[Rfam]
RNA sequence: GGUUUUAACCCAGUUACUCAAGGUAAUUUGGAGUUCCGACCUUUCGCAAGAAAGCGUCAGAAAACUGCAAUUUUUGGCCAGCUUCUUCGGGGUAUCCGUUGAAGCAAU
Numbered sequence: 001g002g003u004u005u006u007a008a009c010c011c012a013g014u015u016a017c018u019c020a021a022g023g024u025a026a027u028u029u030g031g032a033g034u035u036c037c038g039a040c041c042u043u044u045c046g047c048a049a050g051a052a053a054g055c056g057u058c059a060g061a062a063a064a065c066u067g068c069a070a071u072u073u074u075u076g077g078c079c080a081g082c083u084u085c086u087u088c089g090g091g092g093u094a095u096c097c098g099u100u101g102a103a104g105c106a107a108u
Base pairs, nucleotide, nucleotide: 007035008034009031010030013027014026015025016024017023038058039057040056041054042053043052044051045050083106085104086103087102088101089100090099091097092096
The record is a 108-nucleotide RNA from Caenorhabditis bovis, which matches "SL2 RNA" in Rfam. About the family: This family represents SL2 RNA. SL2 RNA is involved in trans splicing in lower eukaryotes. Trans-splicing is a form of RNA processing. The acquisition of a spliced leader from a SL RNA is a intra-molecular reaction which precisely joins exons derived from separately transcribed RNAs. Approximately 25% of C. elegans genes are organised into polycistronic transcription units and the presence of SL2 on an mRNA is an indication the the gene is in an operon. Rfam classes the family as a non-coding RNA gene. Pairs were carried over by alignment from the consensus structure, which is taken from published work. The family has 30 seed sequences and 598 matches in Rfam 15.1. The family is grouped with related families in Rfam's "SL clan".